[Rfam]
RNA sequence: GUAUCCUAAAACAAUGAAAGCCCUACCUCUCUUUCAUCCUUACGGCUCCGAAGCCGCGCCAGUGUGAAUCAGUGAACACUUGUACAAA
Numbered sequence: 001g002u003a004u005c006c007u008a009a010a011a012c013a014a015u016g017a018a019a020g021c022c023c024u025a026c027c028u029c030u031c032u033u034u035c036a037u038c039c040u041u042a043c044g045g046c047u048c049c050g051a052a053g054c055c056g057c058g059c060c061a062g063u064g065u066g067a068a069u070c071a072g073u074g075a076a077c078a079c080u081u082g083u084a085c086a087a088a
Base pairs, nucleotide, nucleotide: 034067035066036065039062040061041058043056044055045054046053047052